[Rfam]
RNA sequence: ACCUACAAUCAGUUUUGCGGGUUUGCAUUUCAGCUUGGUGUCUGUCGCUGUGCAAAUCCAUGCAAAACUGAUUGUGGUG
Numbered sequence: 001a002c003c004u005a006c007a008a009u010c011a012g013u014u015u016u017g018c019g020g021g022u023u024u025g026c027a028u029u030u031c032a033g034c035u036u037g038g039u040g041u042c043u044g045u046c047g048c049u050g051u052g053c054a055a056a057u058c059c060a061u062g063c064a065a066a067a068c069u070g071a072u073u074g075u076g077g078u079g
Stems, first nucleotide, its partner, number of pairs: 003077017020059002022056007032049003